[Rfam]
The family of this 141-nucleotide RNA from Capsicum annuum is "MIR7993 microRNA precursor family". The match comes from Rfam's covariance-model search (101 bits). Its family is annotated with RISC complex and miRNA-mediated post-transcriptional gene silencing in the Gene Ontology. Lineage of the source: Eukaryota > Mesangiospermae > lamiids > Solanoideae > Capsicum.

RNA sequence: UUAAGUCAACCACAUAAAAUAUAUCAUUUCCUUUAGUUAUACGCAUUCACCUCAAUAAACCCAAAAAGUGACAAGCUUUUUUUACUUGAGGUGAUGAGUAUAGUUAAAGAAGAUGACAUAUUUUAUGUGGUUAACUUAACU
Numbered sequence: 001u002u003a004a005g006u007c008a009a010c011c012a013c014a015u016a017a018a019a020u021a022u023a024u025c026a027u028u029u030c031c032u033u034u035a036g037u038u039a040u041a042c043g044c045a046u047u048c049a050c051c052u053c054a055a056u057a058a059a060c061c062c063a064a065a066a067a068g069u070g071a072c073a074a075g076c077u078u079u080u081u082u083u084a085c086u087u088g089a090g091g092u093g094a095u096g097a098g099u100a101u102a103g104u105u106a107a108a109g110a111a112g113a114u115g116a117c118a119u120a121u122u123u124u125a126u127g128u129g130g131u132u133a134a135c136u137u138a139a140c141u
Base pairs, nucleotide, nucleotide: 001139002138003137004136005135006134008132009131010130011129012128013127014126015125016124017123018122019121020120021119022118024116025115029111031109032108033107034106035105036104037103038102039101040100041099042098044096045095046094047093049092050091051090052089053088054087